[Rfam]
RNA sequence: GUAGUCGGUUCGCAUCAAUCCACAUGUGUUCGGGUGGAUUGGAGUGGAACUUGAACUAAAUUCCAUCUCAACCCACUCCAACACAUGUGGACUGAGGCAAAUCCAACA
Number, nucleotide and partner (000 for none) at each position: 001g000002u000003a000004g107005u106006c000007g104008g103009u101010u100011c000012g098013c097014a000015u095016c094017a093018a000019u091020c090021c089022a088023c087024a086025u085026g084027u083028g082029u081030u080031c000032g000033g000034g076035u075036g074037g073038a000039u071040u070041g069042g068043a000044g066045u065046g064047g000048a000049a000050c000051u000052u000053g000054a000055a000056c000057u000058a000059a000060a000061u000062u000063c000064c046065a045066u044067c000068u042069c041070a040071a039072c000073c037074c036075a035076c034077u000078c000079c000080a030081a029082c028083a027084c026085a025086u024087g023088u022089g021090g020091a019092c000093u017094g016095a015096g000097g013098c012099a000100a010101a009102u000103c008104c007105a000106a005107c004108a000

The record is a 108-nucleotide sequence from Miscanthus lutarioriparius, which matches "MIR5565 microRNA precursor family" in Rfam.
The source organism's lineage runs through Eukaryota, Euphyllophyta, Spermatophyta, Poales and Miscanthus.
Pairs were carried over by alignment from the consensus structure, which was predicted with RNAalifold.
Its family is annotated with RISC complex and miRNA-mediated post-transcriptional gene silencing in the Gene Ontology.